A member of the RNA family "c-di-GMP-II-GAG riboswitch aptamer", 84 nucleotides long. Pairs were carried over by alignment from the consensus structure, which is taken from published work.
[Rfam]
RNA sequence: UAUCGGCGCGAGGCUUUGACGCACGGCCCGCACCCUGGCCGCCGGGACCGUGCCGAGCGCCUGGCGGGACCGACCGCGCCAUGU
Number, nucleotide and partner (000 for none) at each position: 001u000002a000003u000004c000005g080006g079007c078008g077009c076010g075011a000012g000013g058014c057015u000016u000017u000018g000019a000020c000021g053022c052023a051024c050025g049026g048027c000028c046029c000030g000031c000032a000033c000034c000035c000036u000037g071038g070039c067040c066041g065042c064043c063044g000045g000046g028047a000048c026049c025050g024051u023052g022053c021054c000055g000056a000057g014058c013059g000060c000061c000062u000063g043064g042065c041066g040067g039068g000069a000070c038071c037072g000073a000074c000075c010076g009077c008078g007079c006080c005081a000082u000083g000084u000